[Rfam]
RNA sequence: UCGCGUGCUCCGGGGUCGGUGUAAUUCCGAGCCGGCGGUGACAGUCCGCGACCCGGCCGCAGCAGUCGAGCGGUCGGUUGACCUGGUGGAAUUCCAGGACCGACGGUGAAAGUCCGGAUGGGAGGCGCACGCGA
Numbered sequence: 001u002c003g004c005g006u007g008c009u010c011c012g013g014g015g016u017c018g019g020u021g022u023a024a025u026u027c028c029g030a031g032c033c034g035g036c037g038g039u040g041a042c043a044g045u046c047c048g049c050g051a052c053c054c055g056g057c058c059g060c061a062g063c064a065g066u067c068g069a070g071c072g073g074u075c076g077g078u079u080g081a082c083c084u085g086g087u088g089g090a091a092u093u094c095c096a097g098g099a100c101c102g103a104c105g106g107u108g109a110a111a112g113u114c115c116g117g118a119u120g121g122g123a124g125g126c127g128c129a130c131g132c133g134a
Base pairs, nucleotide, nucleotide: 003132004131005130006129007128008127009125010124017029018028019027031113032112033102034101035049036048037047038046044100045099053077054076055075056074082098083097084096085095086094104116105115106114
This 134-nucleotide sequence from Kribbella turkmenica belongs to the Rfam family "FMN riboswitch aptamer (RFN element)". NCBI's taxonomy places the organism under Bacteria, Bacillati, Actinomycetota, Kribbellaceae, Kribbella. A search with the family's covariance model found it, with a score of 92 bits.